[Rfam]
RNA sequence: CGAAAGGCUCUUUUAAGAGCCACCACCUGAUCACUGGAGAGAGCUGU
Numbered sequence: 001c002g003a004a005a006g007g008c009u010c011u012u013u014u015a016a017g018a019g020c021c022a023c024c025a026c027c028u029g030a031u032c033a034c035u036g037g038a039g040a041g042a043g044c045u046g047u
Stems, first nucleotide, its partner, number of pairs: 006021006

Histone 3' UTR stem-loop: a 47-nucleotide RNA sequence from Oxyruncus cristatus.
The family's consensus secondary structure is taken from published work.
The family has 50 seed sequences and 44,596 matches in Rfam 15.1.
About the family: The mRNAs of metazoan histone genes lack a poly-A tail. 3' end processing occurs at a site between a highly conserved stem-loop (modelled by this family) and a purine rich region around 20 nts downstream (the histone downstream element, or HDE).
The family's RNA type in Rfam is cis-regulatory element.